[Rfam]
This 64-nucleotide RNA sequence from Petromyzon marinus belongs to the Rfam family "mir-33 microRNA precursor family".
RNA sequence: CUGUGGUGCAUUGUAGUUGCAUUGUAUGGGAAGGGAUGUACAAUGCAUCUGCAGUGCAGCACAG
Numbered sequence: 001c002u003g004u005g006g007u008g009c010a011u012u013g014u015a016g017u018u019g020c021a022u023u024g025u026a027u028g029g030g031a032a033g034g035g036a037u038g039u040a041c042a043a044u045g046c047a048u049c050u051g052c053a054g055u056g057c058a059g060c061a062c063a064g
Base pairs, nucleotide, nucleotide: 001064002063003062004061006060007058008057009056010055011054012053013052014051015050016049019046021044022043023042024041025040026039027038